The family of this 125-nucleotide sequence from Molossus molossus is "U4atac minor spliceosomal RNA". U4atac is an essential component of the minor U12-type spliceosome complex which is required for removal of the rarer class of eukaryotic introns (AT-AC, U12-type). Lineage of the source: Eukaryota > Vertebrata > Teleostomi > Laurasiatheria > Molossus. The family is grouped with related families in Rfam's "U4 clan". For this family Rfam cites "Computational screen for spliceosomal RNA genes aids in defining the phylogenetic distribution of major and minor spliceosomal components" (Davila Lopez et al., Nucleic Acids Res, 2008). The family's consensus secondary structure is taken from published work.

[Rfam]
RNA sequence: GUCAUCCUCUUCUUGGGGUUGUGCUGCUGUUCGAUGAGCAUGUAGUGAGGGCAGUCCUGCUAACUCCUACACAACACGUUCACCUAGGAUAGAGCUCUGCUUACCUUGGUGCAAUUUUUUGAAAA
Numbered sequence: 001g002u003c004a005u006c007c008u009c010u011u012c013u014u015g016g017g018g019u020u021g022u023g024c025u026g027c028u029g030u031u032c033g034a035u036g037a038g039c040a041u042g043u044a045g046u047g048a049g050g051g052c053a054g055u056c057c058u059g060c061u062a063a064c065u066c067c068u069a070c071a072c073a074a075c076a077c078g079u080u081c082a083c084c085u086a087g088g089a090u091a092g093a094g095c096u097c098u099g100c101u102u103a104c105c106u107u108g109g110u111g112c113a114a115u116u117u118u119u120u121g122a123a124a125a
Stems, first nucleotide, its partner, number of pairs: 006018004021060003026055007038046002081111004090103001092102004